[Rfam]
RNA sequence: UGGGGCCUGAAUCAUGAUUCGCACUGUCCGCCUACUUGGUCUACUACUAAACGCAUCUUAUUUGCGCGGUAGACUGGUGGGCAGCAAUCAGCAUUGAUUCAAGCCAACAGACAAAAAACCCGCGCCAGACGCGGGUUUUUUU
Numbered sequence: 001u002g003g004g005g006c007c008u009g010a011a012u013c014a015u016g017a018u019u020c021g022c023a024c025u026g027u028c029c030g031c032c033u034a035c036u037u038g039g040u041c042u043a044c045u046a047c048u049a050a051a052c053g054c055a056u057c058u059u060a061u062u063u064g065c066g067c068g069g070u071a072g073a074c075u076g077g078u079g080g081g082c083a084g085c086a087a088u089c090a091g092c093a094u095u096g097a098u099u100c101a102a103g104c105c106a107a108c109a110g111a112c113a114a115a116a117a118a119c120c121c122g123c124g125c126c127a128g129a130c131g132c133g134g135g136u137u138u139u140u141u142u
Stems, first nucleotide, its partner, number of pairs: 005104002008101002011098004015093002024084009044072005052066004115139010
RNA: Leucine operon leader
Organism: Citrobacter sp. JGM124